[Rfam]
RNA sequence: GAACGAGGGCGAUCUGGCUGCGACAUCUGUCACCCCAUUGAUCGCUAGGGUUGAUUCGGCUGAUCUGGCUGGCUAGGCGGGUGUCCCCUUCCUCCCUCACCGCUCCAUGUGUGUCCCUCCCGAAGCCCCGCGCUCGGUGGAAGAGGACGAGAGCCCCGGCGGAGAAGUAGCUGCGCUCCCCUGCUAGAACCUCCAAACAAGCUCAAGGCCCAUUUGUAGGAGAAACGUAGGGAAGUCGAGCUCCAAGACUUCAGACACAUCCAAAUGAGGCACUGCAUGUGGCAGUCUGCCUUUCUUU
Numbered sequence: 001g002a003a004c005g006a007g008g009g010c011g012a013u014c015u016g017g018c019u020g021c022g023a024c025a026u027c028u029g030u031c032a033c034c035c036c037a038u039u040g041a042u043c044g045c046u047a048g049g050g051u052u053g054a055u056u057c058g059g060c061u062g063a064u065c066u067g068g069c070u071g072g073c074u075a076g077g078c079g080g081g082u083g084u085c086c087c088c089u090u091c092c093u094c095c096c097u098c099a100c101c102g103c104u105c106c107a108u109g110u111g112u113g114u115c116c117c118u119c120c121c122g123a124a125g126c127c128c129c130g131c132g133c134u135c136g137g138u139g140g141a142a143g144a145g146g147a148c149g150a151g152a153g154c155c156c157c158g159g160c161g162g163a164g165a166a167g168u169a170g171c172u173g174c175g176c177u178c179c180c181c182u183g184c185u186a187g188a189a190c191c192u193c194c195a196a197a198c199a200a201g202c203u204c205a206a207g208g209c210c211c212a213u214u215u216g217u218a219g220g221a222g223a224a225a226c227g228u229a230g231g232g233a234a235g236u237c238g239a240g241c242u243c244c245a246a247g248a249c250u251u252c253a254g255a256c257a258c259a260u261c262c263a264a265a266u267g268a269g270g271c272a273c274u275g276c277a278u279g280u281g282g283c284a285g286u287c288u289g290c291c292u293u294u295c296u297u298u
Base pairs, nucleotide, nucleotide: 001105002104005098006097007096008095009094011091012090016088017087022085023084024083025082026081027080028079029078030077031076033072034071035068036067037066040065041064042063043062044060045059046058114165115164116162117161119159120137121136122135123134125133126132138158139157140156146154170241171240172239176235177234179232180231181230182229183228184227191222192221193220194219197217198216199215200214201213263298264297265296267293268292269291270290271289272286273285274284275283276282
RNA: 7SK RNA